[Rfam]
Nucleotides: 075
Stems, first nucleotide, its partner, number of pairs: 003072002011036002016031006034061001039068004044064003047059001049057001
Number, partner (000 for none) and nucleotide at each position: 001000a002000g003072c004071g005000a006000c007000a008000a009000c010000g011036g012035c013000a014000a015000a016031c017030c018029u019028g020027c021026u022000g023000c024000g025000a026021g027020g028019c029018a030017g031016g032000g033000a034061c035012g036011c037000a038000a039068a040067g041066c042065c043000a044064c045063g046062g047059g048000a049057c050000c051000c052000a053000c054000a055000g056000g057049g058000c059047c060000a061034g062046c063045c064044g065042g066041g067040c068039u069000a070000c071004c072003g073000a074000a075000c

c-di-GMP-I-GGC riboswitch aptamer: a 75-nucleotide RNA sequence from Cellulomonas triticagri.
Its Rfam clan is "c-di-GMP_I riboswitch clan".